RNA: SAM-III riboswitch aptamer (SMK box)
RNA sequence: GAUCGUUGCAAGUUCCCGAGAGGAUCCGUAAGAACGGAGAUGCCUUGUAACCGAAUUUAACUAGGGGGAAUCACUAUG
Numbered sequence: 001g002a003u004c005g006u007u008g009c010a011a012g013u014u015c016c017c018g019a020g021a022g023g024a025u026c027c028g029u030a031a032g033a034a035c036g037g038a039g040a041u042g043c044c045u046u047g048u049a050a051c052c053g054a055a056u057u058u059a060a061c062u063a064g065g066g067g068g069a070a071u072c073a074c075u076a077u078g
Base pairs, nucleotide, nucleotide: 013070014069015068016067017066020046021045022044023043025038026037027036028035029034051065052064